[Rfam]
RNA sequence: CUGUGGUGAGGUAGUAAGUUGUGUUGUUGGGGAUCAGUAUAGUGCGCCCCGUACGGGAGAUAACCAUACAACUUACUGCCUUCCUCAG
Numbered sequence: 001c002u003g004u005g006g007u008g009a010g011g012u013a014g015u016a017a018g019u020u021g022u023g024u025u026g027u028u029g030g031g032g033a034u035c036a037g038u039a040u041a042g043u044g045c046g047c048c049c050c051g052u053a054c055g056g057g058a059g060a061u062a063a064c065c066a067u068a069c070a071a072c073u074u075a076c077u078g079c080c081u082u083c084c085u086c087a088g
Stems, first nucleotide, its partner, number of pairs: 001088003005084002008082017026064002029050004052059001
About this RNA: let-7 microRNA precursor family: an 88-nucleotide sequence from Hucho hucho. The literature on the family includes a 2001 paper in Nat Rev Genet by Rougvie, "Control of developmental timing in animals". Rfam's curators write: This family represents the microRNAs (miRNA) let-7 and mir-98. let-7 was identified from a study of developmental timing in C. elegans, and was later shown to be part of a much larger class of non-coding RNAs termed miRNAs. NCBI's taxonomy places the organism under Eukaryota, Metazoa, Deuterostomia, Salmoniformes, Hucho.